[Rfam]
mir-1343 microRNA precursor family: an 83-nucleotide RNA from Chionis minor. The match comes from Rfam's covariance-model search (52 bits). The organism belongs to Chionis, within Eukaryota. Rfam links the family to the GO terms RISC complex and miRNA-mediated post-transcriptional gene silencing. Rfam 15.1 lists 238 matches to the family in 131 species.

RNA sequence: GCGGGGGUUGCCAUGGCGACUUGCGCCCGGGACGGGCCUAGGCCUAGGCCCGUCCCGGGCGCAAGUCGCCAUGGCAACCCCCA
Numbered sequence: 001g002c003g004g005g006g007g008u009u010g011c012c013a014u015g016g017c018g019a020c021u022u023g024c025g026c027c028c029g030g031g032a033c034g035g036g037c038c039u040a041g042g043c044c045u046a047g048g049c050c051c052g053u054c055c056c057g058g059g060c061g062c063a064a065g066u067c068g069c070c071a072u073g074g075c076a077a078c079c080c081c082c083a
Stems, first nucleotide, its partner, number of pairs: 003081003007078004012073002015070004020065004025060007034051005